[Rfam]
RNA: Alphaproteobacterial ar14
RNA sequence: GAUUAUCGCUGAGGCCGUUCCUCCCAAUUCCUCGGCGAUCUAAGACCAGCAUCUUCCUCCCAAGGUCUGGUCUUCACCAUAAACACCCGUCGCUCCUCCCGCGGCGGGUGUUUUAU
Numbered sequence: 001g002a003u004u005a006u007c008g009c010u011g012a013g014g015c016c017g018u019u020c021c022u023c024c025c026a027a028u029u030c031c032u033c034g035g036c037g038a039u040c041u042a043a044g045a046c047c048a049g050c051a052u053c054u055u056c057c058u059c060c061c062a063a064g065g066u067c068u069g070g071u072c073u074u075c076a077c078c079a080u081a082a083a084c085a086c087c088c089g090u091c092g093c094u095c096c097u098c099c100c101g102c103g104g105c106g107g108g109u110g111u112u113u114u115a116u
Stems, first nucleotide, its partner, number of pairs: 007037003011033004042074008083111011